The family of this 76-nucleotide RNA sequence from Bifidobacterium canis is "Fluoride riboswitch aptamer (crcB RNA motif)".
NCBI's taxonomy places the organism under Bacteria, Bacillati, Actinomycetes, Bifidobacteriaceae, Bifidobacterium.
[Rfam]
Nucleotides: 076
Stems, first nucleotide, its partner, number of pairs: 010026004016067006047057002
Number, partner (000 for none) and nucleotide at each position: 001000a002000u003000g004000a005000a006000a007000c008000a009000c010026g011025g012024g013023u014000a015000u016067g017066a018065g019064g020063u021062u022000c023013a024012c025011c026010c027000a028000a029000g030000g031000c032000a033000a034000u035000c036000c037000c038000g039000c040000c041000u042000a043000a044000a045000c046000c047057g048056c049000c050000a051000u052000u053000u054000g055000a056048g057047c058000u059000g060000a061000u062021g063020a064019c065018u066017u067016c068000u069000g070000c071000a072000g073000g074000g075000a076000u